[Rfam]
RNA sequence: GGUCAAAGAAUCUAAGCGCUAAGCCCUUCGGCUUGCUUAGUACCAACCGCGCAACUCGCGCACGGUGGUCUGAAGGAAGACCUGCUGGCGAUGAAAGACACCGCCAGAAGUAGCGGGUU
Numbered sequence: 001g002g003u004c005a006a007a008g009a010a011u012c013u014a015a016g017c018g019c020u021a022a023g024c025c026c027u028u029c030g031g032c033u034u035g036c037u038u039a040g041u042a043c044c045a046a047c048c049g050c051g052c053a054a055c056u057c058g059c060g061c062a063c064g065g066u067g068g069u070c071u072g073a074a075g076g077a078a079g080a081c082c083u084g085c086u087g088g089c090g091a092u093g094a095a096a097g098a099c100a101c102c103g104c105c106a107g108a109a110g111u112a113g114c115g116g117g118u119u
Stems, first nucleotide, its partner, number of pairs: 001082004010041001012040006022033002042069003047065003051061002085107006092100002